[Rfam]
RNA: mir-384 microRNA precursor family
RNA sequence: AAUCAGGAAUUGUAAACAAUUCCUAGGCAAUGUGUAUAAUGUUGGUAAGUCAUUCCUAGAAAUUGUUCACAAUGCCUGUAAC
Number, nucleotide and partner (000 for none) at each position: 001a000002a000003u000004c078005a077006g076007g075008a000009a073010u072011u071012g070013u069014a000015a067016a066017c065018a064019a063020u062021u061022c000023c059024u058025a057026g056027g055028c000029a000030a000031u000032g000033u000034g000035u047036a046037u045038a000039a000040u000041g000042u000043u000044g000045g037046u036047a035048a000049g000050u000051c000052a000053u000054u000055c027056c026057u025058a024059g023060a000061a021062a020063u019064u018065g017066u016067u015068c000069a013070c012071a011072a010073u009074g000075c007076c006077u005078g004079u000080a000081a000082c000